[Rfam]
RNA sequence: UUAAAUUUGAAUAUUUUGCCGUAGAUAGUAGGUGCUAAUGCUUAAACAUCCUACCGAGGCUUUGAAUAAAUAAAAUCAAAGGUCUCGUUAUGUCUAUGAAAAGACAAAAUGAGGCCUUAUUUUAAUAAAAC
Numbered sequence: 001u002u003a004a005a006u007u008u009g010a011a012u013a014u015u016u017u018g019c020c021g022u023a024g025a026u027a028g029u030a031g032g033u034g035c036u037a038a039u040g041c042u043u044a045a046a047c048a049u050c051c052u053a054c055c056g057a058g059g060c061u062u063u064g065a066a067u068a069a070a071u072a073a074a075a076u077c078a079a080a081g082g083u084c085u086c087g088u089u090a091u092g093u094c095u096a097u098g099a100a101a102a103g104a105c106a107a108a109a110u111g112a113g114g115c116c117u118u119a120u121u122u123u124a125a126u127a128a129a130a131c
Stems, first nucleotide, its partner, number of pairs: 028054005034041002081116009
RNA: Ribosomal protein L10 leader